SAM riboswitch aptamer (S box leader): a 108-nucleotide RNA sequence from Alkaliphilus sp. B6464. Rfam links the family to the GO term regulation of gene expression.
RNA sequence: GCCUUAUCAAGAGCGGUGGAGGGAUAGGCCCAAUGAAACCCGGCAACCACAAUAUAUUCGUAUGUGUGGUGCUAAAUCCUACAGAAUUAUAAUUCUGAAAGAUGAGGA
Numbered sequence: 001g002c003c004u005u006a007u008c009a010a011g012a013g014c015g016g017u018g019g020a021g022g023g024a025u026a027g028g029c030c031c032a033a034u035g036a037a038a039c040c041c042g043g044c045a046a047c048c049a050c051a052a053u054a055u056a057u058u059c060g061u062a063u064g065u066g067u068g069g070u071g072c073u074a075a076a077u078c079c080u081a082c083a084g085a086a087u088u089a090u091a092a093u094u095c096u097g098a099a100a101g102a103u104g105a106g107g108a
Base pairs, nucleotide, nucleotide: 002107003106004105005104006103007102008101013041015040016039017038021031022030023029025081026080027079028078042073043072044071045070047069048068049065050064051063077100082097083096084095085094086093087092